[Rfam]
RNA: Small nucleolar RNA SNORD11B
Organism: Carlito syrichta
RNA sequence: UGAUGGCAGUGAUGAUUUUUACAGUUAUUCAUCACCUGAUAACGUAAAUAUGAGGGUGUUCAGUCACUACCGCAUCUGAUGCCAUCA
Numbered sequence: 001u002g003a004u005g006g007c008a009g010u011g012a013u014g015a016u017u018u019u020u021a022c023a024g025u026u027a028u029u030c031a032u033c034a035c036c037u038g039a040u041a042a043c044g045u046a047a048a049u050a051u052g053a054g055g056g057u058g059u060u061c062a063g064u065c066a067c068u069a070c071c072g073c074a075u076c077u078g079a080u081g082c083c084a085u086c087a
Stems, first nucleotide, its partner, number of pairs: 002086006